[Rfam]
Source information: Rfam assigns this 138-nucleotide RNA from Anolis carolinensis to the family "Small Cajal body specific RNA 11".

RNA sequence: CCGUCCAGCCUCCAAUUCCCACCUCUCUUUCCAAAGCUUUGGAAGAGAGGGCUUGUGGCGGACGUAGAUCAAAUUGACUCUUACUUUAGGAGGGUUUCUCAGAGCUCUGAAUUGCCCUCAAAGGCACAGGAGGACAUA
Numbered sequence: 001c002c003g004u005c006c007a008g009c010c011u012c013c014a015a016u017u018c019c020c021a022c023c024u025c026u027c028u029u030u031c032c033a034a035a036g037c038u039u040u041g042g043a044a045g046a047g048a049g050g051g052c053u054u055g056u057g058g059c060g061g062a063c064g065u066a067g068a069u070c071a072a073a074u075u076g077a078c079u080c081u082u083a084c085u086u087u088a089g090g091a092g093g094g095u096u097u098c099u100c101a102g103a104g105c106u107c108u109g110a111a112u113u114g115c116c117c118u119c120a121a122a123g124g125c126a127c128a129g130g131a132g133g134a135c136a137u138a
Base pairs, nucleotide, nucleotide: 001061002060003059004058006057007056022050023049025047026046027045028044029043030042078132079131080130081129082128085124086123087122090119091118092117093116094115095114097111099110100109101108102107
Dot-bracket structure: ((((.((..............((.((((((...........)))))).)).....))))))................(((((..(((..((((((.(.((((....)))))..))))))..)))...)))))......

Source information
NCBI's taxonomy places the organism under Eukaryota, Opisthokonta, Squamata, Episquamata, Anolis. The base pairs follow the family's consensus structure, which was predicted with RNAalifold. For this family Rfam cites "Cajal body-specific small nuclear RNAs: a novel class of 2'-O-methylation and pseudouridylation guide RNAs" (Darzacq et al., EMBO J, 2002). By type it is a small Cajal body RNA.